[Rfam]
Record summary
Shown here is a 264-nucleotide RNA sequence from Lentithecium fluviatile, a member of the family "Fungal signal recognition particle RNA". It is annotated as a non-coding RNA gene. Pairs were carried over by alignment from the consensus structure, which is taken from published work. Lineage of the source: Eukaryota > saccharomyceta > dothideomyceta > Pleosporales > Lentithecium fluviatile.
RNA sequence: ACCUGUAAUGGGUCUCCAUCAGAAGGUCGGCCGUGAUCCACUCGCACCUCCCAAGCACCUACUCUGGCAAGAGCCCAGUUCGAGCCCGGUGGUGGCCAACUCACUCGCUCAGGUAACUAGCGAUGCUGGGCGGCCCUAAGCAAUGAAUACAACCCUGACGAGGGAAGCAAUUCUGCAGUCAAGUAUUCACCAUUGGACGGCGGCGCUGGAAUACUCUGGUUAGGGUUGAGGGGUGUGAGUGGGGUGGUUUGAUCGACUGAUAUU
Numbered sequence: 001a002c003c004u005g006u007a008a009u010g011g012g013u014c015u016c017c018a019u020c021a022g023a024a025g026g027u028c029g030g031c032c033g034u035g036a037u038c039c040a041c042u043c044g045c046a047c048c049u050c051c052c053a054a055g056c057a058c059c060u061a062c063u064c065u066g067g068c069a070a071g072a073g074c075c076c077a078g079u080u081c082g083a084g085c086c087c088g089g090u091g092g093u094g095g096c097c098a099a100c101u102c103a104c105u106c107g108c109u110c111a112g113g114u115a116a117c118u119a120g121c122g123a124u125g126c127u128g129g130g131c132g133g134c135c136c137u138a139a140g141c142a143a144u145g146a147a148u149a150c151a152a153c154c155c156u157g158a159c160g161a162g163g164g165a166a167g168c169a170a171u172u173c174u175g176c177a178g179u180c181a182a183g184u185a186u187u188c189a190c191c192a193u194u195g196g197a198c199g200g201c202g203g204c205g206c207u208g209g210a211a212u213a214c215u216c217u218g219g220u221u222a223g224g225g226u227u228g229a230g231g232g233g234u235g236u237g238a239g240u241g242g243g244g245u246g247g248u249u250u251g252a253u254c255g256a257c258u259g260a261u262a263u264u
Stems, first nucleotide, its partner, number of pairs: 001013003018261005025254006031247003037243014062225002065222004070217004075209005080203003084198001086196007094135001096133002100130004105123005111118002136140001144189007156181004164173003